A member of the RNA family "c-di-GMP-I riboswitch aptamer" from bacterium JGI 053, 75 nucleotides long. A search with the family's covariance model found it, with a score of 48 bits.
RNA sequence: UCCCGACAAAGGCACCCCGGUCGCGAGGCCGGUCCGCAAAGCUAGGGGUCUCCCGCAGACAGCCCGGUCGCCAAA
Numbered sequence: 001u002c003c004c005g006a007c008a009a010a011g012g013c014a015c016c017c018c019g020g021u022c023g024c025g026a027g028g029c030c031g032g033u034c035c036g037c038a039a040a041g042c043u044a045g046g047g048g049u050c051u052c053c054c055g056c057a058g059a060c061a062g063c064c065c066g067g068u069c070g071c072c073a074a075a
Stems, first nucleotide, its partner, number of pairs: 012037002017032006041068003045065003048060003